[Rfam]
RNA: Glycine riboswitch aptamer
Organism: Sphingobium sp. YG1
RNA sequence: GGGCACGAUGCGGGAGAGCAUGGGAAGCCUUUGAGGCCACCCCGUCACCGAAGGAGCAACCGCCCCGGAAUCUCUCAGGUUAAAGGACCGCAUCGCGCGC
Numbered sequence: 001g002g003g004c005a006c007g008a009u010g011c012g013g014g015a016g017a018g019c020a021u022g023g024g025a026a027g028c029c030u031u032u033g034a035g036g037c038c039a040c041c042c043c044g045u046c047a048c049c050g051a052a053g054g055a056g057c058a059a060c061c062g063c064c065c066c067g068g069a070a071u072c073u074c075u076c077a078g079g080u081u082a083a084a085g086g087a088c089c090g091c092a093u094c095g096c097g098c099g100c
Stems, first nucleotide, its partner, number of pairs: 006095008020045004047080003050076002054074003060068002